Overview
A member of the RNA family "Burkholderia RNA 14" from Oxalobacteraceae bacterium CAVE-383, 173 nucleotides long. Co-purified with Hfq, expression confirmed by Northern blot. Putative functional homologue of PA-SraF. Overlaps coding sequence. It is annotated as a small RNA. The match comes from Rfam's covariance-model search (117 bits). The family's consensus secondary structure was predicted with RNAfold. For this family Rfam cites "Experimental identification of small non-coding regulatory RNAs in the opportunistic human pathogen Burkholderia cenocepacia J2315" (Ramos et al., Genomics, 2013). NCBI's taxonomy places the organism under Bacteria, Pseudomonadota, Betaproteobacteria, Burkholderiales, Oxalobacteraceae.
RNA sequence: GUCGGCGUCUACACCGUGCAGCCGACGGCGGUGCCGGUGGUCAGCGAACUGCCGGGGCGCACCAGCGCCUUCCUGGUGGCGCAGGUGCGCGCGCGCGUGGACGGCAUCGUGCUGUCGCGCGAAUUCACCGAGGGCGCGGACGUGAAGGCCGGCCAGCGGCUCUAUAAAAUCGA
Numbered sequence: 001g002u003c004g005g006c007g008u009c010u011a012c013a014c015c016g017u018g019c020a021g022c023c024g025a026c027g028g029c030g031g032u033g034c035c036g037g038u039g040g041u042c043a044g045c046g047a048a049c050u051g052c053c054g055g056g057g058c059g060c061a062c063c064a065g066c067g068c069c070u071u072c073c074u075g076g077u078g079g080c081g082c083a084g085g086u087g088c089g090c091g092c093g094c095g096c097g098u099g100g101a102c103g104g105c106a107u108c109g110u111g112c113u114g115u116c117g118c119g120c121g122a123a124u125u126c127a128c129c130g131a132g133g134g135c136g137c138g139g140a141c142g143u144g145a146a147g148g149c150c151g152g153c154c155a156g157c158g159g160c161u162c163u164a165u166a167a168a169a170u171c172g173a
Stems, first nucleotide, its partner, number of pairs: 003054005008047002013041004019036001021034002023031001055150002058147001059143002063139001065137004072133001074131001079092004094121002097118001099116002102114005157172002161167001